[Rfam]
RNA: Ribosomal protein L20 leader
Organism: Planomicrobium sp. CPCC 101110
RNA sequence: UGUGCUAAGCAGGAGCACCCGCUUCUCACCUGAUUGACGAAUUGUUGGCAGGUAUACACGAUUGACUUUCACACGCUUUUUGCGUGCUGUCAUACUUUGCGGGUGGACCUCUGUGGUCCACCCGCUUUUGUUUUGGAUC
Numbered sequence: 001u002g003u004g005c006u007a008a009g010c011a012g013g014a015g016c017a018c019c020c021g022c023u024u025c026u027c028a029c030c031u032g033a034u035u036g037a038c039g040a041a042u043u044g045u046u047g048g049c050a051g052g053u054a055u056a057c058a059c060g061a062u063u064g065a066c067u068u069u070c071a072c073a074c075g076c077u078u079u080u081u082g083c084g085u086g087c088u089g090u091c092a093u094a095c096u097u098u099g100c101g102g103g104u105g106g107a108c109c110u111c112u113g114u115g116g117u118c119c120a121c122c123c124g125c126u127u128u129u130g131u132u133u134u135g136g137a138u139c
Base pairs, nucleotide, nucleotide: 011026012025013024014023015022016021028053029052030051034048035047036046037045038044099125100124101123102122103121104120105119106118107117108116109115